The record is a 105-nucleotide RNA from Carex littledalei, which matches "Small nucleolar RNA R44/J54/Z268 family" in Rfam. Rfam links the family to the GO terms nucleolus and RNA processing. The family is grouped with related families in Rfam's "SNORD74 clan". Taxonomically the source falls in Carex subgen. Euthyceras (Eukaryota, Tracheophyta, Euphyllophyta, Liliopsida). A search with the family's covariance model found it, with a score of 58 bits.

RNA sequence: GGUGCAAAUGAAGAGGGAAAUGUAGACAGGGAUAUCUGUUACCCCCUUUUGAAUUUUUAAAAAGGGAUGGUAACUGGGUCUAGUUGGGAAUCUCUCUGAUGCCUU
Numbered sequence: 001g002g003u004g005c006a007a008a009u010g011a012a013g014a015g016g017g018a019a020a021u022g023u024a025g026a027c028a029g030g031g032a033u034a035u036c037u038g039u040u041a042c043c044c045c046c047u048u049u050u051g052a053a054u055u056u057u058u059a060a061a062a063a064g065g066g067a068u069g070g071u072a073a074c075u076g077g078g079u080c081u082a083g084u085u086g087g088g089a090a091u092c093u094c095u096c097u098g099a100u101g102c103c104u105u
Stems, first nucleotide, its partner, number of pairs: 002104001004102003